[Rfam]
RNA sequence: UUCUUAUCCAGAGAGAUCGAGGGAUCUGGCCCGAUGACGUCUCAGCAACCUGUGCGCAGCACAAGGUGCUACUUCCAGCAGAAGUAUUUUUCUGGCAGAUAAGGA
Numbered sequence: 001u002u003c004u005u006a007u008c009c010a011g012a013g014a015g016a017u018c019g020a021g022g023g024a025u026c027u028g029g030c031c032c033g034a035u036g037a038c039g040u041c042u043c044a045g046c047a048a049c050c051u052g053u054g055c056g057c058a059g060c061a062c063a064a065g066g067u068g069c070u071a072c073u074u075c076c077a078g079c080a081g082a083a084g085u086a087u088u089u090u091u092c093u094g095g096c097a098g099a100u101a102a103g104g105a
Stems, first nucleotide, its partner, number of pairs: 001105008013043005021032003026078004044070004049066002051063004074097001079094006
Background:
This 105-nucleotide RNA from Aneurinibacillus danicus belongs to the Rfam family "SAM riboswitch aptamer (S box leader)". Rfam describes the family as follows. The SAM riboswitch is found upstream of a number of genes which code for proteins involved in methionine or cysteine biosynthesis in Gram-positive bacteria. The match comes from Rfam's covariance-model search (86 bits). The base pairs follow the family's consensus structure, which is taken from published work.